[Rfam]
A member of the RNA family "Group I catalytic intron" from Aquisphaera giovannonii, 266 nucleotides long. The family's consensus secondary structure is taken from published work.

Nucleotides: 266
Base pairs, nucleotide, nucleotide: 005030007028009026011024013022034043035042036041055212056211057210058209060207061206065124066123067122068121069120070119074115075114076113125159126158131153163245165244166243167242168241169240215231216230217229218228219227220226251264252263253262254261255260
Number, partner (000 for none) and nucleotide at each position: 001000g002000c003000a004000g005030g006000g007028g008000a009026c010000u011024c012000a013022u014000c015000a016000g017000g018000a019000u020000c021000a022013a023000g024011g025000u026009g027000g028007c029000a030005c031000g032000a033000g034043g035042g036041g037000g038000c039000a040000a041036c042035c043034c044000c045000u046000c047000g048000c049000u050000g051000c052000g053000a054000a055212c056211c057210g058209g059000g060207u061206g062000a063000a064000u065124u066123g067122c068121g069120g070119g071000g072000a073000a074115c075114c076113u077000a078000a079000a080000c081000g082000c083000a084000g085000g086000u087000c088000c089000g090000g091000g092000a093000g094000g095000a096000a097000u098000c099000c100000c101000g102000u103000c104000g105000c106000c107000c108000g109000c110000g111000c112000a113076g114075g115074g116000c117000a118000a119070u120069c121068c122067g123066c124065a125159g126158c127000c128000a129000a130000g131153c132000c133000u134000g135000g136000c137000a138000g139000g140000g141000c142000c143000a144000u145000g146000g147000u148000c149000g150000c151000c152000a153131g154000g155000a156000a157000g158126g159125u160000u161000c162000a163245g164000a165244g166243a167242c168241u169240a170000g171000c172000g173000g174000g175000g176000u177000g178000a179000g180000c181000c182000c183000c184000a185000a186000c187000g188000a189000u190000a191000a192000c193000c194000c195000c196000c197000g198000c199000c200000c201000a202000a203000g204000a205000g206061c207060g208000c209058c210057c211056g212055g213000c214000c215231u216230c217229c218228g219227c220226c221000a222000c223000c224000u225000c226220g227219g228218c229217g230216g231215a232000g233000g234000a235000u236000g237000a238000g239000a240169u241168a242167g243166u244165c245163c246000a247000a248000g249000c250000c251264u252263c253262g254261g255260g256000g257000a258000a259000a260255c261254c262253c263252g264251g265000g266000g